RNA sequence: CCGUGGGCGACUGCAAAUCUGAAAGAAGCUGGCGGCAAAUGUUCGGUCCUAAGGACAGGAAUUUCAUAUAAGGAGGGUAUGUGUGGGUGAUGUUGCAAAAGAAACUAAAGCCCUUUAAGAGUAAGAUUACGCUUAUGUUUAUGGAAAGAAUUGAAAAUGUGUAGUACACGGG
Numbered sequence: 001c002c003g004u005g006g007g008c009g010a011c012u013g014c015a016a017a018u019c020u021g022a023a024a025g026a027a028g029c030u031g032g033c034g035g036c037a038a039a040u041g042u043u044c045g046g047u048c049c050u051a052a053g054g055a056c057a058g059g060a061a062u063u064u065c066a067u068a069u070a071a072g073g074a075g076g077g078u079a080u081g082u083g084u085g086g087g088u089g090a091u092g093u094u095g096c097a098a099a100a101g102a103a104a105c106u107a108a109a110g111c112c113c114u115u116u117a118a119g120a121g122u123a124a125g126a127u128u129a130c131g132c133u134u135a136u137g138u139u140u141a142u143g144g145a146a147a148g149a150a151u152u153g154a155a156a157a158u159g160u161g162u163a164g165u166a167c168a169c170g171g172g
Stems, first nucleotide, its partner, number of pairs: 003014004029171003035165002040159004046151002049148002062146006073140003077136003081132003085113004092105003

Rfam assigns this 172-nucleotide RNA sequence from Anditalea andensis to the family "Group II catalytic intron D1-D4-3". Pairs were carried over by alignment from the consensus structure. The match comes from Rfam's covariance-model search (76 bits). Rfam describes the family as follows. Group II introns are found in rRNA, tRNA and mRNA of organelles in fungi, plants and protists, and also in mRNA in bacteria. Lineage of the source: Bacteria > Bacteroidota > Cytophagales > Cytophagaceae > Anditalea. The literature on the family includes a 2001 paper in Trends Genet by Bonen and Vogel, "The ins and outs of group II introns".